[Rfam]
RNA sequence: ACGCCAGAUGGUAAAACUAUUAAUAUUUCAUCAUAAUUACCUUAAUUUAAUUAUAAAAAAGGAAUUAUGAUUUAAU
Numbered sequence: 001a002c003g004c005c006a007g008a009u010g011g012u013a014a015a016a017c018u019a020u021u022a023a024u025a026u027u028u029c030a031u032c033a034u035a036a037u038u039a040c041c042u043u044a045a046u047u048u049a050a051u052u053a054u055a056a057a058a059a060a061g062g063a064a065u066u067a068u069g070a071u072u073u074a075a076u
Stems, first nucleotide, its partner, number of pairs: 030071008
dfrA-dnaX RNA: a 76-nucleotide sequence. The base pairs follow the family's consensus structure, which is taken from published work. It is annotated as a small RNA. Rfam's curators put it in the seed alignment.